[Rfam]
RNA sequence: GGCCUCUCUCUUUGGGGCGAUCAAUCGUGGAGCACCCCCAUUGAUCACCCUGCAGAGGGUGGCC
Numbered sequence: 001g002g003c004c005u006c007u008c009u010c011u012u013u014g015g016g017g018c019g020a021u022c023a024a025u026c027g028u029g030g031a032g033c034a035c036c037c038c039c040a041u042u043g044a045u046c047a048c049c050c051u052g053c054a055g056a057g058g059g060u061g062g063c064c
Base pairs, nucleotide, nucleotide: 001064002063003062004061006059007058008057009056010055011054013052014051015050016049017048019046020045021044022043023042024041025040027038029036030035
Shown here is a 64-nucleotide sequence from Myotis brandtii, a member of the family "mir-9242 microRNA precursor family". Rfam 15.1 lists 940 matches to the family in 18 species.